[Rfam]
RNA sequence: CGUGUUGUCUCCGGACGCAGCGGUUUACCGAUCUCUUCCUGAAGCGUUUGUUUAAUGGAGACUGAUUGCCGAUGGAAGUGAAAGACAGAACAGGAAUCGGUCGAUAAACCUCUGCAUCCGGUGCUCACCUA
Numbered sequence: 001c002g003u004g005u006u007g008u009c010u011c012c013g014g015a016c017g018c019a020g021c022g023g024u025u026u027a028c029c030g031a032u033c034u035c036u037u038c039c040u041g042a043a044g045c046g047u048u049u050g051u052u053u054a055a056u057g058g059a060g061a062c063u064g065a066u067u068g069c070c071g072a073u074g075g076a077a078g079u080g081a082a083a084g085a086c087a088g089a090a091c092a093g094g095a096a097u098c099g100g101u102c103g104a105u106a107a108a109c110c111u112c113u114g115c116a117u118c119c120g121g122u123g124c125u126c127a128c129c130u131a
Stems, first nucleotide, its partner, number of pairs: 013119003018114003022110004027105001029103005036096006
The record is a 131-nucleotide RNA sequence from Protea cynaroides, which matches "MIR162_1 microRNA precursor family" in Rfam. Taxonomically the source falls in Protea (Eukaryota, Viridiplantae, Spermatophyta, Mesangiospermae). A reference for the family is Reinhart et al. (2002), "MicroRNAs in plants", Genes Dev. Gene Ontology terms of the family: miRNA-mediated post-transcriptional gene silencing and RISC complex.